[Rfam]
RNA sequence: GGGGGCGACAUGGCUUCGACGCGGAUGUCAAAACCCAAGGUGCAUGCCGAGGUCGCAAAUCACCUCGUUAAUCAAUUUGCAACCUAAGCUAGUUGCGAACGACGACAACUACGCUCUGGCGGCCUAAAACCCGCUAGCGUCCGCCCGGCAAGUGUCUGUGCUUCCGGAUCCGGGCGUCGACACUCACAGACUCGCGGUAAGGCCCCGCUUCGGGCUGAUCCGUUAAGAGCAAACGAAGAUACGCGUACGUUUUCCCUGCCCGUCGGGUAACGUACGCCGACAAUCAAAGACGGUAUAAGCAUGUAGACCCGAGGGUGGAGAAUCCGCGGACGCGGGUUCGAUUCCCGCCGCCUCCACCA
Numbered sequence: 001g002g003g004g005g006c007g008a009c010a011u012g013g014c015u016u017c018g019a020c021g022c023g024g025a026u027g028u029c030a031a032a033a034c035c036c037a038a039g040g041u042g043c044a045u046g047c048c049g050a051g052g053u054c055g056c057a058a059a060u061c062a063c064c065u066c067g068u069u070a071a072u073c074a075a076u077u078u079g080c081a082a083c084c085u086a087a088g089c090u091a092g093u094u095g096c097g098a099a100c101g102a103c104g105a106c107a108a109c110u111a112c113g114c115u116c117u118g119g120c121g122g123c124c125u126a127a128a129a130c131c132c133g134c135u136a137g138c139g140u141c142c143g144c145c146c147g148g149c150a151a152g153u154g155u156c157u158g159u160g161c162u163u164c165c166g167g168a169u170c171c172g173g174g175c176g177u178c179g180a181c182a183c184u185c186a187c188a189g190a191c192u193c194g195c196g197g198u199a200a201g202g203c204c205c206c207g208c209u210u211c212g213g214g215c216u217g218a219u220c221c222g223u224u225a226a227g228a229g230c231a232a233a234c235g236a237a238g239a240u241a242c243g244c245g246u247a248c249g250u251u252u253u254c255c256c257u258g259c260c261c262g263u264c265g266g267g268u269a270a271c272g273u274a275c276g277c278c279g280a281c282a283a284u285c286a287a288a289g290a291c292g293g294u295a296u297a298a299g300c301a302u303g304u305a306g307a308c309c310c311g312a313g314g315g316u317g318g319a320g321a322a323u324c325c326g327c328g329g330a331c332g333c334g335g336g337u338u339c340g341a342u343u344c345c346c347g348c349c350g351c352c353u354c355c356a357c358c359a
Stems, first nucleotide, its partner, number of pairs: 001355007020328007028320001033316004039310002043303005048067005055080006116137007138176006145167004150163003154191007195222003208238004243277009254267003260293005332348005
A member of the RNA family "transfer-messenger RNA" from Salinisphaera orenii, 359 nucleotides long. A reference for the family is Williams and Bartel (1996), "Phylogenetic analysis of tmRNA secondary structure", RNA. The match comes from Rfam's covariance-model search (213 bits). Lineage of the source: Bacteria > Pseudomonadati > Salinisphaerales > Salinisphaeraceae > Salinisphaera orenii subsp. orenii. By type it is a non-coding RNA gene. Pairs were carried over by alignment from the consensus structure, which is taken from published work.